[Rfam]
RNA: c-di-AMP riboswitch aptamer (ydaO/yuaA leader)
RNA sequence: GGCAGGAGCGGGGGACCCAGGUAAGUGCCGGGAAACCGGCUUGGGGUUAAGCCGAGCGCAAGGUCGCUCGGCCGGGCAACUCAUUGGCCCGAACCCGACAGCUCACCUCGUAGGCGUCGGUGAGGAGAUUU
Number, nucleotide and partner (000 for none) at each position: 001g000002g000003c000004a000005g000006g000007a000008g111009c110010g109011g108012g107013g106014g000015a000016c000017c000018c043019a042020g041021g040022u039023a000024a000025g000026u000027g000028c000029c000030g000031g000032g000033a000034a000035a000036c000037c000038g000039g022040c021041u020042u019043g018044g096045g095046g094047u000048u000049a000050a000051g000052c071053c070054g069055a068056g067057c066058g000059c000060a000061a000062g000063g000064u000065c000066g057067c056068u055069c054070g053071g052072c000073c000074g090075g089076g088077c087078a000079a000080c000081u000082c000083a000084u000085u000086g000087g077088c076089c075090c074091g000092a000093a000094c046095c045096c044097g000098a000099c000100a000101g000102c000103u000104c000105a000106c013107c012108u011109c010110g009111u008112a000113g000114g000115c000116g000117u000118c000119g000120g000121u000122g000123a000124g000125g000126a000127g000128a000129u000130u000131u000